[Rfam]
RNA: ZMP/ZTP riboswitch aptamer (pfl RNA motif)
Organism: Paenibacillus bovis
RNA sequence: CAGACCCGGUGUAACUGGCGACAAGAGUGGAACCUGACCACGAUGGAGCACUGGGAUAUACGGCCGGUCGCCUGGGCAAAGAGC
Numbered sequence: 001c002a003g004a005c006c007c008g009g010u011g012u013a014a015c016u017g018g019c020g021a022c023a024a025g026a027g028u029g030g031a032a033c034c035u036g037a038c039c040a041c042g043a044u045g046g047a048g049c050a051c052u053g054g055g056a057u058a059u060a061c062g063g064c065c066g067g068u069c070g071c072c073u074g075g076g077c078a079a080a081g082a083g084c
Stems, first nucleotide, its partner, number of pairs: 003057001005055008015045001017072005027041004063077003